RNA: Bacterial RNase P class A
Organism: Pelistega ratti
Nucleotides: 365
Stems, first nucleotide, its partner, number of pairs: 001361010011350001012320007020029003034348003038345005043227004050255004055223005060074005075093001076091006094218002099216002101212003116200002118197007126189001231277004241268005247259004284303008
Number, partner (000 for none) and nucleotide at each position: 001361a002360a003359a004358g005357c006356a007355a008354g009353c010352u011350g012320g013319g014318c015317a016316a017315u018314c019000g020029c021028g022027a023000g024000u025000a026000a027022u028021c029020g030000a031000g032000g033000a034348a035347a036346g037000u038345c039344c040343g041342g042341a043227c044226u045225c046224c047000a048000u049000a050255g051254a052253g053252c054000a055223a056222g057221g058220u059219a060074g061073c062072g063071g064070c065000u066000a067000a068000c069000a070064g071063c072062c073061g074060u075093c076091c077090a078089u079088u080087c081086a082000g083000c084000g085000a086081u087080g088079a089078a090077u091076g092000a093075g094218g095217a096000a097000u098000a099216g100215g101212g102211c103210c104000a105000c106000a107000g108000a109000g110000a111000c112000g113000a114000g115000u116200u117199u118197a119196c120195u121194a122193u123192g124191u125000g126189g127000g128000c129000u130000u131000a132000a133000u134000g135000a136000u137000u138000u139000u140000g141000g142000u143000c144000u145000u146000u147000a148000g149000g150000c151000u152000c153000u154000g155000g156000u157000a158000c159000g160000g161000u162000u163000a164000g165000u166000u167000c168000c169000g170000u171000a172000u173000g174000g175000c176000g177000u178000u179000a180000u181000a182000u183000u184000u185000a186000u187000a188000a189126c190000a191124g192123c193122a194121u195120a196119g197118u198000a199117a200116g201000g202000u203000g204000a205000a206000a207000c208000g209000c210103g211102g212101u213000a214000a215100c216099c217095u218094c219059u220058a221057u222056c223055u224046g225045g226044a227043g228000c229000a230000a231277c232276a233275u234274c235000a236000a237000a238000u239000a240000g241268g242267c243266a244265u245264a246000u247259g248258g249257g250256c251000u252053g253052c254051u255050c256250g257249u258248c259247c260000u261000a262000u263000g264245u265244a266243u267242g268241c269000g270000g271000g272000u273000a274234g275233a276232u277231g278000g279000c280000u281000u282000g283000a284303a285302c286301u287300u288299u289298a290297u291296a292000g293000u294000a295000a296291u297290a298289u299288a300287a301286a302285g303284u304000c305000u306000a307000g308000a309000g310000g311000a312000a313000u314018g315017a316016u317015u318014g319013c320012c321000g322000a323000c324000c325000u326000u327000u328000u329000a330000g331000g332000u333000u334000u335000a336000c337000a338000u339000a340000a341042u342041c343040c344039g345038g346036c347035u348034u349000a350011u351000a352010g353009g354008c355007u356006u357005g358004c359003u360002u361001u362000g363000u364000c365000u